[Rfam]
RNA sequence: UGGUCAACAAUGAGGUGACCACUGUGCAGUCCGCGUCCUGGAAAUCAGGUGAUGGAGUGUGUUCUGAGAACCGACUGAGACUG
Number, nucleotide and partner (000 for none) at each position: 001u000002g082003g081004u080005c079006a000007a000008c000009a000010a000011u000012g000013a000014g000015g000016u000017g000018a000019c000020c000021a000022c000023u000024g000025u000026g000027c000028a000029g000030u000031c000032c000033g000034c000035g000036u000037c000038c048039u047040g046041g045042a000043a000044a000045u041046c040047a039048g038049g000050u000051g000052a000053u000054g000055g000056a000057g000058u000059g000060u000061g000062u000063u000064c000065u000066g000067a000068g000069a000070a000071c000072c000073g000074a000075c000076u000077g000078a000079g005080a004081c003082u002083g000

The family of this 83-nucleotide RNA sequence from Sousa chinensis is "small Cajal body-specific RNA 18". The base pairs follow the family's consensus structure, which was predicted with PFOLD. The literature on the family includes a 2002 paper in Mol Cell Biol by Galardi et al., "Purified box C/D snoRNPs are able to reproduce site-specific 2'-O-methylation of target RNA in vitro". The match comes from Rfam's covariance-model search (84 bits). Its family is annotated with nucleolus, Cajal body and RNA processing in the Gene Ontology. By type it is a small Cajal body RNA.